[Rfam]
RNA sequence: ACAGUCUGAAAAUCACUUGGGGUCUUCUGUGGCCGUAGGUGUGAUAACCGUGCCGACAGCAGAGGGAACAUUAAACUCAUUGCCCACAGUAAAGCAUGGGGAGUGAAACCCAUAUAAUAGUAGGA
Numbered sequence: 001a002c003a004g005u006c007u008g009a010a011a012a013u014c015a016c017u018u019g020g021g022g023u024c025u026u027c028u029g030u031g032g033c034c035g036u037a038g039g040u041g042u043g044a045u046a047a048c049c050g051u052g053c054c055g056a057c058a059g060c061a062g063a064g065g066g067a068a069c070a071u072u073a074a075a076c077u078c079a080u081u082g083c084c085c086a087c088a089g090u091a092a093a094g095c096a097u098g099g100g101g102a103g104u105g106a107a108a109c110c111c112a113u114a115u116a117a118u119a120g121u122a123g124g125a
Base pairs, nucleotide, nucleotide: 006050008048010045014041015040016039021034022033023032024031065118068115070113071112077106078105079104080103081102085098086097
The record is a 125-nucleotide RNA sequence from Bucco capensis, which matches "Small nucleolar RNA ACA64" in Rfam. By type it is an H/ACA-box small nucleolar RNA. Taxonomically the source falls in Bucco (Eukaryota, Archelosauria, Saurischia, Theropoda). On this family, see Schattner et al., RNA 2006: "A computational screen for mammalian pseudouridylation guide H/ACA RNAs". Its family is annotated with nucleolus and RNA processing in the Gene Ontology.